[Rfam]
RNA: TPP riboswitch aptamer (THI element)
RNA sequence: GCCAUCUCAACGGGGUGCCUGCUAUGAUUAAUAUUGUUAAUAGCUGGCUGAGAAAAACUCGUCUAACCUGAUCCGAUUAACAUCGGCGUAGGGAUUUGAGCCACUCUAAUGA
Numbered sequence: 001g002c003c004a005u006c007u008c009a010a011c012g013g014g015g016u017g018c019c020u021g022c023u024a025u026g027a028u029u030a031a032u033a034u035u036g037u038u039a040a041u042a043g044c045u046g047g048c049u050g051a052g053a054a055a056a057a058c059u060c061g062u063c064u065a066a067c068c069u070g071a072u073c074c075g076a077u078u079a080a081c082a083u084c085g086g087c088g089u090a091g092g093g094a095u096u097u098g099a100g101c102c103a104c105u106c107u108a109a110u111g112a
Stems, first nucleotide, its partner, number of pairs: 006100005011061004016055001017048003021044005067092004073086004
Dot-bracket structure: .....(((((((((.((((.(((((..............))))).)))......)..)))).....((((..((((......))))..))))...)))))............